[Rfam]
RNA sequence: GGCUCAGUGAUUGUUGCCAAUCAUAUUUGGUCAUAUACGCUAUUCCGAUUUCUAUUGGUGGAAAAGAAAAAUUUAUGAGAGCU
Numbered sequence: 001g002g003c004u005c006a007g008u009g010a011u012u013g014u015u016g017c018c019a020a021u022c023a024u025a026u027u028u029g030g031u032c033a034u035a036u037a038c039g040c041u042a043u044u045c046c047g048a049u050u051u052c053u054a055u056u057g058g059u060g061g062a063a064a065a066g067a068a069a070a071a072u073u074u075a076u077g078a079g080a081g082c083u
Base pairs, nucleotide, nucleotide: 001083002082003081004080005079